[Rfam]
RNA sequence: GGCCUACCUCUUUGGGGUGAUCGAUCGUGGAGCCCCGCAAUUGAUCACCCUGCAGAGGGAGGCC
Numbered sequence: 001g002g003c004c005u006a007c008c009u010c011u012u013u014g015g016g017g018u019g020a021u022c023g024a025u026c027g028u029g030g031a032g033c034c035c036c037g038c039a040a041u042u043g044a045u046c047a048c049c050c051u052g053c054a055g056a057g058g059g060a061g062g063c064c
Base pairs, nucleotide, nucleotide: 001064002063003062004061005060007058008057009056010055011054013052014051015050016049017048018047019046020045021044022043023042024041025040027038028037029036030035

Shown here is a 64-nucleotide RNA from Cnephaeus nilssonii, a member of the family "mir-9242 microRNA precursor family". Rfam links the family to the GO terms RISC complex and miRNA-mediated post-transcriptional gene silencing. Pairs were carried over by alignment from the consensus structure, which was predicted with RNAalifold.